[Rfam]
Streptomyces RNA 6106: an 85-nucleotide RNA from Streptomyces sp. HGB0020. The pairing is the family consensus, mapped onto this sequence. The family's RNA type in Rfam is small RNA. On this family, see Vockenhuber et al., RNA Biol 2011: "Deep sequencing-based identification of small non-coding RNAs in Streptomyces coelicolor".
RNA sequence: ACGCCGUCCCGAGCGGCGUUCAUGGCCUUGUAGGGGCCAGCUGGGCGGGGGUGAUGCCGUGUCGGCGCAGCAUCACCCCCGCAAC
Numbered sequence: 001a002c003g004c005c006g007u008c009c010c011g012a013g014c015g016g017c018g019u020u021c022a023u024g025g026c027c028u029u030g031u032a033g034g035g036g037c038c039a040g041c042u043g044g045g046c047g048g049g050g051g052u053g054a055u056g057c058c059g060u061g062u063c064g065g066c067g068c069a070g071c072a073u074c075a076c077c078c079c080c081g082c083a084a085c
Stems, first nucleotide, its partner, number of pairs: 001019007020043001023040001025038001026036003045082013059068003
The source organism's lineage runs through Bacteria, Actinomycetota, Kitasatosporales, Streptomycetaceae and Streptomyces.